[Rfam]
RNA sequence: UGGCGCCCAGCGUGGGGCCCGAGAAUGGGGGAUCCAGUGAAGAACGCUGCUCGGGGGCCCAAUAAAAUAGAAGAGACAAAUAAAAUAGAAAAAAGAGGAUUGCGUCUGACGUGAACCUGUCGUCUUUCCUGCACCUCGGUGAGUUGAGCAGCGAUUAUGGGACAGGAGAUUAGCCAACAUGAGUUGUUUGUAGAAGGUCUUAAAAAAAAACUUUACAGGCACGAGGGGUAAAGGUUACAGUCAAACAGUUGUUAAAAUAUUUUGAUUAUAUUAGAGAUCUCUGCCCUU
Dot-bracket structure: .....(((...((...........))..)))...((((.......)))).............................................((((.....(...((((.........))))...).....))))......(((..(..((....)).).)))....(.((.....................................).).)......(((((.((..((.(...........).))......)).)))))........((.(.(....).).))
RNA: Mason-Pfizer monkey virus packaging signal
Organism: Heterocephalus glaber